Mammalian CPEB3 ribozyme: a 78-nucleotide RNA sequence from Alligator mississippiensis. It scores 51 bits against the family's covariance model.

RNA sequence: AGUCGCAAAUUCAAGGCCAUAGCAGAAGCGCUCAUGGCACAGCCUUUCUCAAAUUCCAAUGAAUCUGUGAAUUCUGGU
Dot-bracket structure: ............(((((...[.[[[[[(.(.......).).)))))...((.((((....)))).))....]]]]].]